Rfam assigns this 98-nucleotide RNA sequence to the family "Small nucleolar RNA R32/R81/Z41". By type it is a C/D-box small nucleolar RNA. Rfam's curators put it in the seed alignment. Rfam 15.1 lists 238 matches to the family in 139 species.
RNA sequence: UGAAGAAUGUGAUGAAAGUUGUCGAUUAUGUGUGAUGAUUCUUUAGAUUCAAUUGAUCGAUAAAAACUUCAAUUCGCUACGUUCUUUCUGAUUCUUCA
Numbered sequence: 001u002g003a004a005g006a007a008u009g010u011g012a013u014g015a016a017a018g019u020u021g022u023c024g025a026u027u028a029u030g031u032g033u034g035a036u037g038a039u040u041c042u043u044u045a046g047a048u049u050c051a052a053u054u055g056a057u058c059g060a061u062a063a064a065a066a067c068u069u070c071a072a073u074u075c076g077c078u079a080c081g082u083u084c085u086u087u088c089u090g091a092u093u094c095u096u097c098a
Stems, first nucleotide, its partner, number of pairs: 004095004